[Rfam]
RNA sequence: UGUUAAUGAUAUAACGCUAUAAGUUUAAAAAAAUGGUCAGGUCUGGGAAGAAGCAGCCAACUUAAAUAAGUAGGUGUUAUUGUUUUUAUUGACAAGA
Numbered sequence: 001u002g003u004u005a006a007u008g009a010u011a012u013a014a015c016g017c018u019a020u021a022a023g024u025u026u027a028a029a030a031a032a033a034u035g036g037u038c039a040g041g042u043c044u045g046g047g048a049a050g051a052a053g054c055a056g057c058c059a060a061c062u063u064a065a066a067u068a069a070g071u072a073g074g075u076g077u078u079a080u081u082g083u084u085u086u087u088a089u090u091g092a093c094a095a096g097a
Base pairs, nucleotide, nucleotide: 004091005090006089007088008087011080012079013078014077015074017073018072019071020070023067024066025065026064027063028062034059035058036057037056042051043050044049
Bacterial small signal recognition particle RNA: a 97-nucleotide RNA sequence from Buchnera aphidicola. The source organism's lineage runs through Bacteria, Pseudomonadati, Pseudomonadota, Gammaproteobacteria and Buchnera aphidicola (Cinara cedri). The family's RNA type in Rfam is non-coding RNA gene.